The family of this 70-nucleotide RNA from Rhodamnia argentea is "Plastid-clpP 5UTR RNA".
The literature on the family includes a 2023 paper in Plant Commun by Richter et al., "Retrograde signaling in plants: A critical review focusing on the GUN pathway and beyond".
Rfam 15.1 lists 2,105 matches to the family in 526 species.
It scores 70 bits against the family's covariance model.

RNA sequence: AAUUCGCUUUCGUAGGAACAAAGAAAAGUAGAUUUAUUCUAUAUCCGAUAAGUACCGAUAUGCAAUGGGG
Number, nucleotide and partner (000 for none) at each position: 001a000002a000003u023004u022005c000006g000007c000008u000009u018010u017011c016012g000013u000014a000015g000016g011017a010018a009019c000020a000021a000022a004023g003024a000025a000026a000027a000028g000029u000030a000031g000032a000033u000034u000035u000036a000037u000038u000039c000040u000041a000042u000043a000044u069045c068046c067047g000048a000049u000050a000051a000052g061053u060054a059055c000056c000057g000058a000059u054060a053061u052062g000063c000064a000065a000066u000067g046068g045069g044070g000
Record summary:
Plastid clpP is a non-coding RNA (ncRNA) recognised in plastids.